[Rfam]
RNA sequence: CAGCGUUCUCAGGGCGGGGCGAAAUUCCCCACCGGCGGUAUCUGCAGCGAUGCAGGAGCCCGCGAGCGCCCGGCACAGGCUAUUGCCCGUGCCGGGGUCAGCAGACCUGGUGCGAUGCCAGGGCCGACGGUCACAGUCCGGAUGAAAGAGACGCGCAA
Numbered sequence: 001c002a003g004c005g006u007u008c009u010c011a012g013g014g015c016g017g018g019g020c021g022a023a024a025u026u027c028c029c030c031a032c033c034g035g036c037g038g039u040a041u042c043u044g045c046a047g048c049g050a051u052g053c054a055g056g057a058g059c060c061c062g063c064g065a066g067c068g069c070c071c072g073g074c075a076c077a078g079g080c081u082a083u084u085g086c087c088c089g090u091g092c093c094g095g096g097g098u099c100a101g102c103a104g105a106c107c108u109g110g111u112g113c114g115a116u117g118c119c120a121g122g123g124c125c126g127a128c129g130g131u132c133a134c135a136g137u138c139c140g141g142a143u144g145a146a147a148g149a150g151a152c153g154c155g156c157a158a
Stems, first nucleotide, its partner, number of pairs: 003156004007151004017029003031137002033126002035063004058124002066102002106122005128140003
This 158-nucleotide RNA sequence from Ramlibacter agri belongs to the Rfam family "FMN riboswitch aptamer (RFN element)". A search with the family's covariance model found it, with a score of 99 bits. The family's consensus secondary structure is taken from published work.